[Rfam]
RNA sequence: ACCGAUGUCUUACCAGGCAAGGUUAGAUCUUGUUACCCUCGUCUAAUACUGUCUGGUAAUGCCGUCGGU
Numbered sequence: 001a002c003c004g005a006u007g008u009c010u011u012a013c014c015a016g017g018c019a020a021g022g023u024u025a026g027a028u029c030u031u032g033u034u035a036c037c038c039u040c041g042u043c044u045a046a047u048a049c050u051g052u053c054u055g056g057u058a059a060u061g062c063c064g065u066c067g068g069u
Stems, first nucleotide, its partner, number of pairs: 002068006009061001010059010022047006

A member of the RNA family "mir-8/mir-141/mir-200 microRNA precursor family" from Leptobrachium leishanense, 69 nucleotides long. The source organism's lineage runs through Eukaryota, Craniata, Pelobatoidea, Megophryidae and Leptobrachium. The family's consensus secondary structure was predicted with RNAalifold. The literature on the family includes a 2003 paper in RNA by Lagos-Quintana et al., "New microRNAs from mouse and human".